[Rfam]
RNA: Bacterial RNase P class A
RNA sequence: GCGGAUGGCUGGAUGACCGCGGGCGGGCCGACCUUCGGGGCGGGGCCGCGCGAGGAAAGUCCGGGCUCCAUGCAGGCACGGUGCCGGGUAACGCCCGGCGGGGGCAACCCCAGGGAAAGCGCCACAGAGAAGAGACCGCCGGCGGCCAGGCCCCUUCGGGGUACCAGCCGCAGGCAAGGGUGAAACGGUGGGGUAAAAGCCCACCGCGGGACGGGCAACCGGACCGGCACGGCAAGCCCCACCGGGAGCAAUGCCGAAUAGGGAUCGCGCGCGGGGGCAACCCCGCAGGGCCGCCUGCGCCCCGGCAGAUCCGGGUUGGCAGCUUGAGCCCGUCAGCAAUGGCGGGCCGAGAGGAAUGGUCAUCCAGAGGGGCGAAACCCCCUUGGACAGAACCCGGCUUACAGGCCGUCCGCGCGU
Numbered sequence: 001g002c003g004g005a006u007g008g009c010u011g012g013a014u015g016a017c018c019g020c021g022g023g024c025g026g027g028c029c030g031a032c033c034u035u036c037g038g039g040g041c042g043g044g045g046c047c048g049c050g051c052g053a054g055g056a057a058a059g060u061c062c063g064g065g066c067u068c069c070a071u072g073c074a075g076g077c078a079c080g081g082u083g084c085c086g087g088g089u090a091a092c093g094c095c096c097g098g099c100g101g102g103g104g105c106a107a108c109c110c111c112a113g114g115g116a117a118a119g120c121g122c123c124a125c126a127g128a129g130a131a132g133a134g135a136c137c138g139c140c141g142g143c144g145g146c147c148a149g150g151c152c153c154c155u156u157c158g159g160g161g162u163a164c165c166a167g168c169c170g171c172a173g174g175c176a177a178g179g180g181u182g183a184a185a186c187g188g189u190g191g192g193g194u195a196a197a198a199g200c201c202c203a204c205c206g207c208g209g210g211a212c213g214g215g216c217a218a219c220c221g222g223a224c225c226g227g228c229a230c231g232g233c234a235a236g237c238c239c240c241a242c243c244g245g246g247a248g249c250a251a252u253g254c255c256g257a258a259u260a261g262g263g264a265u266c267g268c269g270c271g272c273g274g275g276g277g278c279a280a281c282c283c284c285g286c287a288g289g290g291c292c293g294c295c296u297g298c299g300c301c302c303c304g305g306c307a308g309a310u311c312c313g314g315g316u317u318g319g320c321a322g323c324u325u326g327a328g329c330c331c332g333u334c335a336g337c338a339a340u341g342g343c344g345g346g347c348c349g350a351g352a353g354g355a356a357u358g359g360u361c362a363u364c365c366a367g368a369g370g371g372g373c374g375a376a377a378c379c380c381c382c383u384u385g386g387a388c389a390g391a392a393c394c395c396g397g398c399u400u401a402c403a404g405g406c407c408g409u410c411c412g413c414g415c416g417u
Stems, first nucleotide, its partner, number of pairs: 001413010011402001012364007020052002023049004028044001057400003061397005066248004076298002079244005084098005099113001100111004114239002119237002121233003136179002138175003142171005187205006206228001207226003212221003252321004262312005291305003328347008